[Rfam]
RNA: tRNA
RNA sequence: GGGGGCGUAGCUCAGUUGGUUAGAGCGCUGCCCUGUCACGGCAGAGGCCGCGGGUUCGAGUCCCGUCGCUCCCG
Numbered sequence: 001g002g003g004g005g006c007g008u009a010g011c012u013c014a015g016u017u018g019g020u021u022a023g024a025g026c027g028c029u030g031c032c033c034u035g036u037c038a039c040g041g042c043a044g045a046g047g048c049c050g051c052g053g054g055u056u057c058g059a060g061u062c063c064c065g066u067c068g069c070u071c072c073c074g
Stems, first nucleotide, its partner, number of pairs: 001073007010026004028044005050066005